[Rfam]
RNA sequence: CUAUAUCUACCCUGUAGAUCCGGAUUUGUGUAAAAAUCAUUAAAGCAAUCACAAAUUCGCUUCUAGGGGAGUAUAUAGU
Numbered sequence: 001c002u003a004u005a006u007c008u009a010c011c012c013u014g015u016a017g018a019u020c021c022g023g024a025u026u027u028g029u030g031u032a033a034a035a036a037u038c039a040u041u042a043a044a045g046c047a048a049u050c051a052c053a054a055a056u057u058c059g060c061u062u063c064u065a066g067g068g069g070a071g072u073a074u075a076u077a078g079u
Stems, first nucleotide, its partner, number of pairs: 002077005010069003016064003021059010